[Rfam]
Nucleotides: 356
Stems, first nucleotide, its partner, number of pairs: 001319003009316001011199004016193001018192003022085007030078002032074009046062006090186003093182004101175007108152001112148008123134003160167002204245006213239002218234004256315006264293011297304002321348003330341004
Number, partner (000 for none) and nucleotide at each position: 001319g002318g003317c004000g005000u006000a007000a008000a009316g010000g011199g012198c013197g014196c015000g016193c017000a018192g019191g020190c021000g022085g023084c024083c025082g026081a027080u028079c029000a030078a031077g032074u033073u034072a035071g036070a037069u038068g039067u040066g041000a042000a043000a044000u045000a046062c047061c048060c049059g050058g051057g052000c053000u054000u055000a056000a057051c058050c059049u060048g061047g062046g063000a064000a065000c066040u067039g068038c069037a070036u071035u072034u073033a074032a075000a076000a077031c078030u079028g080027g081026u082025u083024g084023g085022c086000u087000a088000g089000g090186a091185g092184u093182g094181c095180a096179g097000g098000a099000g100000a101175g102174g103173g104172a105171a106170g107169c108152g109000g110000a111000a112148u113147u114146c115145c116144u117143a118142g119141u120000g121000u122000a123134g124133c125132g126000g127000u128000g129000a130000a131000a132125u133124g134123c135000g136000u137000a138000g139000a140000u141119a142118u143117u144116a145115g146114g147113a148112g149000g150000a151000a152108c153000a154000c155000c156000a157000g158000u159000g160167g161166c162000g163000a164000a165000g166161g167160c168000g169107g170106c171105u172104u173103u174102c175101u176000g177000g178000a179096c180095u181094g182093u183000a184092a185091c186090u187000g188000a189000c190020g191019c192018u193016g194000a195000g196014g197013c198012g199011c200000g201000a202000a203000a204245g205244c206243g207242u208241g209240g210000g211000g212000a213239g214238c215000g216000a217000a218234c219233a220232g221231g222000a223000u224000u225000a226000g227000a228000u229000a230000c231221c232220c233219u234218g235000g236000u237000a238214g239213u240209c241208c242207a243206c244205g245204c246000u247000g248000u249000a250000a251000a252000c253000g254000a255000u256315g257314a258313a259312u260311a261310c262000u263000a264293g265292g266291u267290g268289u269288a270287g271286g272285g273284g274283g275000u276000a277000u278000c279000g280000a281000c282000c283274c284273c285272c286271c287270c288269u289268g290267u291266g292265c293264c294000g295000g296000a297304g298303c299000a300000a301000a302000c303298g304297c305000a306000a307000u308000a309000a310261g311260u312259a313258u314257u315256c316009c317003g318002c319001c320000u321348g322347g323346g324000g325000a326000g327000u328000a329000c330341g331340g332339c333338c334000g335000c336000a337000a338333g339332g340331u341330u342000g343000a344000a345000a346323c347322u348321c349000a350000a351000a352000g353000g354000a355000a356000u
This 356-nucleotide part of an RNA from Luoshenia tenuis belongs to the Rfam family "Bacterial small subunit ribosomal RNA". The family's consensus secondary structure is taken from published work. The match comes from Rfam's covariance-model search (1584 bits).